[Rfam]
RNA: S10-Clostridia ribosomal protein leader
RNA sequence: AUAAAGCGAUGAAGUGAAAGGUUGCCCGAUACACCCGGCUCCUUUGCCAUGGCGGGUGUGGGGAAAUUUUCACGGAGUAUGUCUGGAAAUCAGGCGA
Numbered sequence: 001a002u003a004a005a006g007c008g009a010u011g012a013a014g015u016g017a018a019a020g021g022u023u024g025c026c027c028g029a030u031a032c033a034c035c036c037g038g039c040u041c042c043u044u045u046g047c048c049a050u051g052g053c054g055g056g057u058g059u060g061g062g063g064a065a066a067u068u069u070u071c072a073c074g075g076a077g078u079a080u081g082u083c084u085g086g087a088a089a090u091c092a093g094g095c096g097a
Stems, first nucleotide, its partner, number of pairs: 014073003018070004025062004080096006